[Rfam]
RNA: S-element
RNA sequence: UGUCAAGAGUCGUUGGCGUCGUUUCGACGAGCAGUUUUCUUUUGCCUGAUUGAAAGGCGAGGAAAUG
Numbered sequence: 001u002g003u004c005a006a007g008a009g010u011c012g013u014u015g016g017c018g019u020c021g022u023u024u025c026g027a028c029g030a031g032c033a034g035u036u037u038u039c040u041u042u043u044g045c046c047u048g049a050u051u052g053a054a055a056g057g058c059g060a061g062g063a064a065a066u067g
Base pairs, nucleotide, nucleotide: 010063011062014060017059018058019057020056022055023054024053025052026051027050029047031045032044033043034042